Shown here is a 119-nucleotide sequence from Brassica rapa, a member of the family "MIR9563 microRNA precursor family".
Rfam 15.1 lists 5,832 matches to the family in 9 species.
Rfam links the family to the GO terms miRNA-mediated post-transcriptional gene silencing and RISC complex.
RNA sequence: GGAAUAUAAAAAUCCGUCUCUUAACUUUUAACUAAAAAAACUAAGAACCGGUUCUUAAAUAUUAAGAACUGGUUCUUAGCUUUUUUAGUUAAAAGUUAAGAGAUGCAUUCUUAUAUUUC
Numbered sequence: 001g002g003a004a005u006a007u008a009a010a011a012a013u014c015c016g017u018c019u020c021u022u023a024a025c026u027u028u029u030a031a032c033u034a035a036a037a038a039a040a041c042u043a044a045g046a047a048c049c050g051g052u053u054c055u056u057a058a059a060u061a062u063u064a065a066g067a068a069c070u071g072g073u074u075c076u077u078a079g080c081u082u083u084u085u086u087a088g089u090u091a092a093a094a095g096u097u098a099a100g101a102g103a104u105g106c107a108u109u110c111u112u113a114u115a116u117u118u119c
Stems, first nucleotide, its partner, number of pairs: 001119009011109003015105025041079007

NCBI's taxonomy places the organism under Eukaryota, Spermatophyta, Gunneridae, Pentapetalae, Brassica.